[Rfam]
RNA sequence: UGCAGAUGAUGAUCAUUUUUUUGCUGUGAAAAAAAAAGUGAUGACAACCACCAAGAUCGCUGAUGCA
Numbered sequence: 001u002g003c004a005g006a007u008g009a010u011g012a013u014c015a016u017u018u019u020u021u022u023g024c025u026g027u028g029a030a031a032a033a034a035a036a037a038g039u040g041a042u043g044a045c046a047a048c049c050a051c052c053a054a055g056a057u058c059g060c061u062g063a064u065g066c067a
Base pairs, nucleotide, nucleotide: 001067002066003065004064
The family of this 67-nucleotide sequence from Lamprotornis superbus is "Small nucleolar RNA SNORD24". Rfam links the family to the GO terms nucleolus and RNA processing. A reference for the family is Hirose and Steitz (2001), "Position within the host intron is critical for efficient processing of box C/D snoRNAs in mammalian cells", Proc Natl Acad Sci U S A. Pairs were carried over by alignment from the consensus structure, which was predicted with PFOLD.